A member of the RNA family "Archaeal large subunit ribosomal RNA" from Methanofollis fontis, 576 nucleotides of a longer RNA. The match comes from Rfam's covariance-model search (2911 bits). The source organism's lineage runs through Archaea, Methanobacteriati, Methanobacteriota, Methanomicrobiales and Methanofollis.

RNA sequence: CCCCAAAUGGGAAGUGAAGACCCCGUGGAGCUUUACUGCAGCCUGUCGCUGUGUUACGGUAUUCUUUGCGCAGUGUAGAUGGGAGGCGUCGAUCCGUCCCUUGUGGGGGGCGGUGAGCCAACGAUGAGACACCAUCCUUAGUUUGCUGUAACACUCACUCAUUCGAGGACAACGAUAGGUAGGCAGUUUGGGUGGGGCGCCACACCCUCGAAAAAAUAUCAAGGGUGCCCUAAGGUCAACUCAUGUGAGUCAGAAACUCACAGAAGAGUGUCAAGAGCAAAAGUUGGCCUGACGCGAUUAUGAAUAGCAAAUAAUCGCGAGAGGAAACUCGGGUCUAACGAACCAAUACGCCUUUUUGAUGAGGGCUAUUGACGACAGAAAAGCUACCCCGGGGAUAACAGAGUCGUCGCCGGCAAGAGCACAUAUCGACCCGGCGGCUUGCUACCUCGAUGUCGGUUCUUUCCAUCCUGGCUGUGCAGCAGCAGCCAAGGGUGAGGUUGUUCGCCUAUUAAAGGGGAUCGUGAGCUGGGUUUAGACCGUCGUGAGACAGGUCGGUUACUAUCUAUUUGGGGUGUU
Numbered sequence: 001c002c003c004c005a006a007a008u009g010g011g012a013a014g015u016g017a018a019g020a021c022c023c024c025g026u027g028g029a030g031c032u033u034u035a036c037u038g039c040a041g042c043c044u045g046u047c048g049c050u051g052u053g054u055u056a057c058g059g060u061a062u063u064c065u066u067u068g069c070g071c072a073g074u075g076u077a078g079a080u081g082g083g084a085g086g087c088g089u090c091g092a093u094c095c096g097u098c099c100c101u102u103g104u105g106g107g108g109g110g111c112g113g114u115g116a117g118c119c120a121a122c123g124a125u126g127a128g129a130c131a132c133c134a135u136c137c138u139u140a141g142u143u144u145g146c147u148g149u150a151a152c153a154c155u156c157a158c159u160c161a162u163u164c165g166a167g168g169a170c171a172a173c174g175a176u177a178g179g180u181a182g183g184c185a186g187u188u189u190g191g192g193u194g195g196g197g198c199g200c201c202a203c204a205c206c207c208u209c210g211a212a213a214a215a216a217u218a219u220c221a222a223g224g225g226u227g228c229c230c231u232a233a234g235g236u237c238a239a240c241u242c243a244u245g246u247g248a249g250u251c252a253g254a255a256a257c258u259c260a261c262a263g264a265a266g267a268g269u270g271u272c273a274a275g276a277g278c279a280a281a282a283g284u285u286g287g288c289c290u291g292a293c294g295c296g297a298u299u300a301u302g303a304a305u306a307g308c309a310a311a312u313a314a315u316c317g318c319g320a321g322a323g324g325a326a327a328c329u330c331g332g333g334u335c336u337a338a339c340g341a342a343c344c345a346a347u348a349c350g351c352c353u354u355u356u357u358g359a360u361g362a363g364g365g366c367u368a369u370u371g372a373c374g375a376c377a378g379a380a381a382a383g384c385u386a387c388c389c390c391g392g393g394g395a396u397a398a399c400a401g402a403g404u405c406g407u408c409g410c411c412g413g414c415a416a417g418a419g420c421a422c423a424u425a426u427c428g429a430c431c432c433g434g435c436g437g438c439u440u441g442c443u444a445c446c447u448c449g450a451u452g453u454c455g456g457u458u459c460u461u462u463c464c465a466u467c468c469u470g471g472c473u474g475u476g477c478a479g480c481a482g483c484a485g486c487c488a489a490g491g492g493u494g495a496g497g498u499u500g501u502u503c504g505c506c507u508a509u510u511a512a513a514g515g516g517g518a519u520c521g522u523g524a525g526c527u528g529g530g531u532u533u534a535g536a537c538c539g540u541c542g543u544g545a546g547a548c549a550g551g552u553c554g555g556u557u558a559c560u561a562u563c564u565a566u567u568u569g570g571g572g573u574g575u576u
Stems, first nucleotide, its partner, number of pairs: 001572008010564003014559002022393004027389002029385005035187004042179007051154011064141002068137001078136005085119003097110005158167003190203001191201003204226005229333002235288006241267002244262006268278002293319009321330001323328001344371005350366005402443003406440001407437007417427002454529001455527004459521001460518005467492002471486005495507004535553004539548003

The base pairs follow the family's consensus structure, which is taken from published work. Its family is annotated with ribosome and structural constituent of ribosome in the Gene Ontology.